[Rfam]
Rfam assigns this 108-nucleotide RNA sequence from Cynara cardunculus to the family "MIR394 microRNA precursor family". Gene Ontology terms of the family: miRNA-mediated post-transcriptional gene silencing and RISC complex. It scores 63 bits against the family's covariance model. The family's consensus secondary structure was predicted with WAR. The family has 19 seed sequences and 724 matches in Rfam 15.1.
RNA sequence: UGUACAGAGCCAGUUUGGCAUUCUGUCCACCUCCGCAUGUACUUGUUGAUGGUGGUGAGGAUUAUCGCUUAUAGGGAGGUGGUCAGCCUGCUAAAUUAGCUCUGUAAG
Numbered sequence: 001u002g003u004a005c006a007g008a009g010c011c012a013g014u015u016u017g018g019c020a021u022u023c024u025g026u027c028c029a030c031c032u033c034c035g036c037a038u039g040u041a042c043u044u045g046u047u048g049a050u051g052g053u054g055g056u057g058a059g060g061a062u063u064a065u066c067g068c069u070u071a072u073a074g075g076g077a078g079g080u081g082g083u084c085a086g087c088c089u090g091c092u093a094a095a096u097u098a099g100c101u102c103u104g105u106a107a108g
Base pairs, nucleotide, nucleotide: 015094016093017092018091019090020089024085025084027082028081029080030079031078032077033076034075